[Rfam]
RNA sequence: CACGCCCAUUGUACUUCAUCAGGUGCUCUGGUGAUCAUAGUUCCAGGCGCUUGUUGGAGUACACUUACCGUG
Numbered sequence: 001c002a003c004g005c006c007c008a009u010u011g012u013a014c015u016u017c018a019u020c021a022g023g024u025g026c027u028c029u030g031g032u033g034a035u036c037a038u039a040g041u042u043c044c045a046g047g048c049g050c051u052u053g054u055u056g057g058a059g060u061a062c063a064c065u066u067a068c069c070g071u072g
Base pairs, nucleotide, nucleotide: 001072002071003070004069010063011062012061014059015058016057017056018055020053021052023050024049025048026047027046030044031043
The family of this 72-nucleotide RNA from Bombyx mori is "mir-305 microRNA precursor family". Pairs were carried over by alignment from the consensus structure, which was predicted with RNAalifold. A reference for the family is Weaver et al. (2007), "Computational and transcriptional evidence for microRNAs in the honey bee genome", Genome Biol. Rfam's curators put it in the seed alignment.